[Rfam]
RNA sequence: CCUGGAGUUUCACCCACUCACCCGUCACGGCAGGAGCGGGGGAACCACAGGUACGACGCCUGGCCCGGUUCCCGGAACAGGCUCGGGGUAAAGCCGUGCGACAGCGCGGCCGGGCAUCUCCAGUCCGCACCCGACAGCUCACCUCGCAGGCGCCGGAGAGGAAUU
Numbered sequence: 001c002c003u004g005g006a007g008u009u010u011c012a013c014c015c016a017c018u019c020a021c022c023c024g025u026c027a028c029g030g031c032a033g034g035a036g037c038g039g040g041g042g043a044a045c046c047a048c049a050g051g052u053a054c055g056a057c058g059c060c061u062g063g064c065c066c067g068g069u070u071c072c073c074g075g076a077a078c079a080g081g082c083u084c085g086g087g088g089u090a091a092a093g094c095c096g097u098g099c100g101a102c103a104g105c106g107c108g109g110c111c112g113g114g115c116a117u118c119u120c121c122a123g124u125c126c127g128c129a130c131c132c133g134a135c136a137g138c139u140c141a142c143c144u145c146g147c148a149g150g151c152g153c154c155g156g157a158g159a160g161g162a163a164u165u
Base pairs, nucleotide, nucleotide: 001034002033003032004031036147037146038145039144040143041142046085086132087131088130094109095108096107097106112126113125114124115123
RNA: c-di-AMP riboswitch aptamer (ydaO/yuaA leader)
Organism: Streptomyces minutiscleroticus